[Rfam]
Background: The family of this 62-nucleotide sequence from Dulcicalothrix desertica is "Nitrogen stress-induced RNA 1".
RNA sequence: UGGUAGAUGCACCCUGAUAACUCACUCCCCUAGUAGACUGCCAUCCGCUAGGGGUUUUUUUA
Numbered sequence: 001u002g003g004u005a006g007a008u009g010c011a012c013c014c015u016g017a018u019a020a021c022u023c024a025c026u027c028c029c030c031u032a033g034u035a036g037a038c039u040g041c042c043a044u045c046c047g048c049u050a051g052g053g054g055u056u057u058u059u060u061u062a
Stems, first nucleotide, its partner, number of pairs: 002013003027054008036045002
Description:
The literature on the family includes a 2010 paper in J Mol Biol by Ionescu et al., "Heterocyst-specific transcription of NsiR1, a non-coding RNA encoded in a tandem array of direct repeats in cyanobacteria". It scores 68 bits against the family's covariance model. The family has 17 seed sequences and 962 matches in Rfam 15.1.